RNA sequence: GGCUCAAUGAUUACAUGCCUCUUAACAGGCAAUAUACGCUAUUCUCAUUGGUAUGUUAUCAAUAGGAUGAAAACAUAAAAUGCAUAUGAGAGCC
Numbered sequence: 001g002g003c004u005c006a007a008u009g010a011u012u013a014c015a016u017g018c019c020u021c022u023u024a025a026c027a028g029g030c031a032a033u034a035u036a037c038g039c040u041a042u043u044c045u046c047a048u049u050g051g052u053a054u055g056u057u058a059u060c061a062a063u064a065g066g067a068u069g070a071a072a073a074c075a076u077a078a079a080a081u082g083c084a085u086a087u088g089a090g091a092g093c094c
Base pairs, nucleotide, nucleotide: 001094002093003092004091005090
Notes: This 94-nucleotide sequence from Papaver nudicaule belongs to the Rfam family "Small nucleolar RNA U54". Rfam's curators write: U54 is a C/D box small nucleolar RNA, which acts as a methylation guide for 18S ribosomal RNA in plants. A search with the family's covariance model found it, with a score of 49 bits. Gene Ontology terms of the family: nucleolus and RNA processing. It is annotated as a C/D-box small nucleolar RNA. Its Rfam clan is "U54 clan".